[Rfam]
RNA: Trans-activation response element (TAR)
Organism: Lentivirus humimdef1
RNA sequence: GGGUCUCUUUGGUUAGACCAGAUCUGAGCCUGGGAGUUCUCUGGCUGGCCAAGGAACCCAC
Number, nucleotide and partner (000 for none) at each position: 001g059002g058003g057004u056005c000006u055007c054008u053009u052010u051011g050012g049013u048014u047015a046016g045017a000018c044019c043020a042021g041022a040023u000024c000025u000026g039027a038028g037029c036030c000031u000032g000033g000034g000035a000036g029037u028038u027039c026040u022041c021042u020043g019044g018045c016046u015047g014048g013049c012050c011051a010052a009053g008054g007055a006056a004057c003058c002059c001060a000061c000